[Rfam]
Notes:
A member of the RNA family "Group II catalytic intron D1-D4-2" from Bacillus sp. FJAT-27916, 119 nucleotides long. Group II introns are found in rRNA, tRNA and mRNA of organelles in fungi, plants and protists, and also in mRNA in bacteria. The pairing is the family consensus, mapped onto this sequence.
RNA sequence: GAUGGAAGGUCCAUCGAUGGAGAUUGAAUCAGGCAAAUCCAUCAAACAACCCUAAGCUGCUGCAAUAAAGAGUUGUGGUAGUAAGCGUCUAGGGAAAAGGUUGAAAUAAAUCAAUCAUG
Numbered sequence: 001g002a003u004g005g006a007a008g009g010u011c012c013a014u015c016g017a018u019g020g021a022g023a024u025u026g027a028a029u030c031a032g033g034c035a036a037a038u039c040c041a042u043c044a045a046a047c048a049a050c051c052c053u054a055a056g057c058u059g060c061u062g063c064a065a066u067a068a069a070g071a072g073u074u075g076u077g078g079u080a081g082u083a084a085g086c087g088u089c090u091a092g093g094g095a096a097a098a099g100g101u102u103g104a105a106a107u108a109a110a111u112c113a114a115u116c117a118u119g
Base pairs, nucleotide, nucleotide: 001015002014003013004012005011016043017042018041019040020039021038024036025035026034047119048118050094051093052092053091054090055088056082057081059079060078061077063075064074065073066072099116100115101114102113103112104111
NCBI's taxonomy places the organism under Bacteria, Bacillota, Bacilli, Bacillaceae, Bacillus.